[Rfam]
RNA sequence: CCGCGAGGACGACCUCCCCCAUCAGGGCACCAUACCGGGACGGCCCGG
Numbered sequence: 001c002c003g004c005g006a007g008g009a010c011g012a013c014c015u016c017c018c019c020c021a022u023c024a025g026g027g028c029a030c031c032a033u034a035c036c037g038g039g040a041c042g043g044c045c046c047g048g
Stems, first nucleotide, its partner, number of pairs: 003018001005016004035048005
Source information
Guanidine-II riboswitch aptamer (mini-ykkC): a 48-nucleotide RNA from Paracoccus aestuariivivens. Lineage of the source: Bacteria > Pseudomonadota > Rhodobacterales > Paracoccaceae > Paracoccus. The family's consensus secondary structure is taken from published work. Its family is annotated with regulation of gene expression in the Gene Ontology. It scores 40 bits against the family's covariance model.